[Rfam]
Rfam assigns this 74-nucleotide RNA sequence from Pteropus vampyrus to the family "Small nucleolar RNA SNORD113/SNORD114 family". The base pairs follow the family's consensus structure, which is taken from published work. Gene Ontology terms of the family: nucleolus and RNA processing. On this family, see Cavaille et al., Hum Mol Genet 2002: "Identification of tandemly-repeated C/D snoRNA genes at the imprinted human 14q32 domain reminiscent of those at the Prader-Willi/Angelman syndrome region". Lineage of the source: Eukaryota > Craniata > Tetrapoda > Mammalia > Pteropus. About the family: The imprinted human domain at 14q32 contains two clusters of tandemly repeated small nucleolar RNAs named 14q(I) and 14q(II) snoRNAs. These two clusters are named SNORD113 and SNORD114 respectively in the HGNC approved gene symbol nomenclature. The snoRNAs found in both clusters are clearly related and are represented here by a single family. These snoRNAs are intron encoded and are processed from the tissue-specific non-coding human MEG8 RNA, which lies downstream of the imprinted genes DLK1 and GTL2. snoRNAs 14q(I) and 14q(II) differ from previously identified C/D box snoRNAs in their expression profiles and lack of complementarity to rRNA and snRNA. Homologues of these snoRNAs are found in the imprinted non-coding mouse transcript Rian, and in the rat non-coding Bsr (brain-specific repetitive) RNA. It is annotated as a C/D-box small nucleolar RNA.
RNA sequence: UGGAUAGUGAUGACUACUGGUGGUGUGUGUGUCAUGAUUGGUGAAGAACAUGUAUCUGAAACUCUGAGGUCCAA
Numbered sequence: 001u002g003g004a005u006a007g008u009g010a011u012g013a014c015u016a017c018u019g020g021u022g023g024u025g026u027g028u029g030u031g032u033c034a035u036g037a038u039u040g041g042u043g044a045a046g047a048a049c050a051u052g053u054a055u056c057u058g059a060a061a062c063u064c065u066g067a068g069g070u071c072c073a074a
Stems, first nucleotide, its partner, number of pairs: 002072004